[Rfam]
RNA sequence: ACGAAGGAAAGGAGGUGGUCCGAGGAAUGAUCAAGCUCGGGACUUUCGAGGUGGCUGCGCGCUAGUCGCAGUCCGCAGGACGGCCGCUGAGCCGGUCCAGCCGGACCCCUGACCGGCGAGACCGACGCAGCCACCGGGGCCCGCGGGGGUCGUGCACUCGUCCAGCACGACAGGUGGGAGACCACCGACCCGCGGGCUCUUCCCU
Numbered sequence: 001a002c003g004a005a006g007g008a009a010a011g012g013a014g015g016u017g018g019u020c021c022g023a024g025g026a027a028u029g030a031u032c033a034a035g036c037u038c039g040g041g042a043c044u045u046u047c048g049a050g051g052u053g054g055c056u057g058c059g060c061g062c063u064a065g066u067c068g069c070a071g072u073c074c075g076c077a078g079g080a081c082g083g084c085c086g087c088u089g090a091g092c093c094g095g096u097c098c099a100g101c102c103g104g105a106c107c108c109c110u111g112a113c114c115g116g117c118g119a120g121a122c123c124g125a126c127g128c129a130g131c132c133a134c135c136g137g138g139g140c141c142c143g144c145g146g147g148g149g150u151c152g153u154g155c156a157c158u159c160g161u162c163c164a165g166c167a168c169g170a171c172a173g174g175u176g177g178g179a180g181a182c183c184a185c186c187g188a189c190c191c192g193c194g195g196g197c198u199c200u201u202c203c204c205u
Stems, first nucleotide, its partner, number of pairs: 015058005060118004065113002068109001071106001073104003137199011150170006
Actinobacteria sRNA Ms_IGR-5: a 205-nucleotide RNA from Sediminihabitans luteus.
The family's RNA type in Rfam is small RNA.
Pairs were carried over by alignment from the consensus structure.
For this family Rfam cites "Identification of small RNAs in Mycobacterium smegmatis using heterologous Hfq" (Li et al., RNA, 2013).
It scores 63 bits against the family's covariance model.